[Rfam]
RNA sequence: UCCCCUGCUUCACCUCCCUGAGCAGGUCCUCGUUUCGAGGAAUUUCCCAGCCCGGCUUCGGCCGGGCUUUUUUAC
Numbered sequence: 001u002c003c004c005c006u007g008c009u010u011c012a013c014c015u016c017c018c019u020g021a022g023c024a025g026g027u028c029c030u031c032g033u034u035u036c037g038a039g040g041a042a043u044u045u046c047c048c049a050g051c052c053c054g055g056c057u058u059c060g061g062c063c064g065g066g067c068u069u070u071u072u073u074a075c
Base pairs, nucleotide, nucleotide: 004026005025006024007023008022009021027041028040029039030038031037032036050067051066052065053064054063055062056061

Shown here is a 75-nucleotide RNA from Comamonas terrigena, a member of the family "Burkholderia RNA 7 (anti-hemB)". The match comes from Rfam's covariance-model search (58 bits). The source organism's lineage runs through Bacteria, Pseudomonadati, Betaproteobacteria, Comamonadaceae and Comamonas. On this family, see Weinberg et al., Nucleic Acids Res 2007: "Identification of 22 candidate structured RNAs in bacteria using the CMfinder comparative genomics pipeline". The base pairs follow the family's consensus structure, which is taken from published work. Rfam's curators write: This RNA motif was identified by computational search in b-proteobacteria Burkholderia. Co-purified with Hfq, expression confirmed by Northern blot. The family's RNA type in Rfam is small RNA. Rfam links the family to the GO terms bacterial biofilm matrix and protein binding.